RNA sequence: GUGACAGAAGAGAGUGAGCACACAUGGUACUUUCUUGCAUGCUGGGUUCAUGCUUGAAGCUUUGCGUGCUCACUCUCUAUCUGUCAC
Numbered sequence: 001g002u003g004a005c006a007g008a009a010g011a012g013a014g015u016g017a018g019c020a021c022a023c024a025u026g027g028u029a030c031u032u033u034c035u036u037g038c039a040u041g042c043u044g045g046g047u048u049c050a051u052g053c054u055u056g057a058a059g060c061u062u063u064g065c066g067u068g069c070u071c072a073c074u075c076u077c078u079a080u081c082u083g084u085c086a087c
Base pairs, nucleotide, nucleotide: 001087002086003085004084005083006082007081008080010077011076012075013074014073015072016071017070018069019068020067021066023064024063
RNA: mir-156 microRNA precursor family
Organism: Malus baccata